[Rfam]
RNA sequence: UUCUGUGCAGUUCUAUGUGAUUAGCUAAGGUAGCUGAUACCAUGUGAGCCAGGCUACCAGCUCCAGAGCUGAUCAUAUGGAAGGCACAAGC
Numbered sequence: 001u002u003c004u005g006u007g008c009a010g011u012u013c014u015a016u017g018u019g020a021u022u023a024g025c026u027a028a029g030g031u032a033g034c035u036g037a038u039a040c041c042a043u044g045u046g047a048g049c050c051a052g053g054c055u056a057c058c059a060g061c062u063c064c065a066g067a068g069c070u071g072a073u074c075a076u077a078u079g080g081a082a083g084g085c086a087c088a089a090g091c
Stems, first nucleotide, its partner, number of pairs: 004088005011082016029064002032062005038056002040053002043051002